A member of the RNA family "RT-4 RNA", 120 nucleotides long. The family's RNA type in Rfam is small RNA.

RNA sequence: UACACCGCUGGCGGUUGAAAUACCGCUGAAAGUGAAAAUACAGCCGCAAAAGGUGCAGUAUGGUAGCCGGGGCGAAACCCUUAGUUGUAUAGCGUGGCGAAUUACUGCAAGGCGAUAAGA
Numbered sequence: 001u002a003c004a005c006c007g008c009u010g011g012c013g014g015u016u017g018a019a020a021u022a023c024c025g026c027u028g029a030a031a032g033u034g035a036a037a038a039u040a041c042a043g044c045c046g047c048a049a050a051a052g053g054u055g056c057a058g059u060a061u062g063g064u065a066g067c068c069g070g071g072g073c074g075a076a077a078c079c080c081u082u083a084g085u086u087g088u089a090u091a092g093c094g095u096g097g098c099g100a101a102u103u104a105c106u107g108c109a110a111g112g113c114g115a116u117a118a119g120a
Stems, first nucleotide, its partner, number of pairs: 003034003010027006043113003054109006066098003069081004